[Rfam]
RNA sequence: UUCAGAGCGUUGAAGGAUCGCAGUAGUUGUGCAAAUCCCUGUUUCAGAGAGCUGGCGGUGGUGCGAGUCAGUAAACAUUUGCAAAUGAAUUACAGUCCCGAGCAUCUUCUUUUGGAUCAUGCCCCAUCCCGCAACCGAGAGAAGACGGUUUAACAAUCGUUAACAAUCCCAAGCGGCAUCAAUUUGUGCAACAAGGGUGGUACCGCGAGCAUACACUCGUCCCUUAU
Numbered sequence: 001u002u003c004a005g006a007g008c009g010u011u012g013a014a015g016g017a018u019c020g021c022a023g024u025a026g027u028u029g030u031g032c033a034a035a036u037c038c039c040u041g042u043u044u045c046a047g048a049g050a051g052c053u054g055g056c057g058g059u060g061g062u063g064c065g066a067g068u069c070a071g072u073a074a075a076c077a078u079u080u081g082c083a084a085a086u087g088a089a090u091u092a093c094a095g096u097c098c099c100g101a102g103c104a105u106c107u108u109c110u111u112u113u114g115g116a117u118c119a120u121g122c123c124c125c126a127u128c129c130c131g132c133a134a135c136c137g138a139g140a141g142a143a144g145a146c147g148g149u150u151u152a153a154c155a156a157u158c159g160u161u162a163a164c165a166a167u168c169c170c171a172a173g174c175g176g177c178a179u180c181a182a183u184u185u186g187u188g189c190a191a192c193a194a195g196g197g198u199g200g201u202a203c204c205g206c207g208a209g210c211a212u213a214c215a216c217u218c219g220u221c222c223c224u225u226a227u
Base pairs, nucleotide, nucleotide: 007103008102015098016097017096018095026086027085028084030083031082032081040075042073051072052071053070054069055068056067106144107143108142109141110140111139112138113137114136115135146159147158148157176189177188178187179186194224195223196222197221205220206219207218208217209216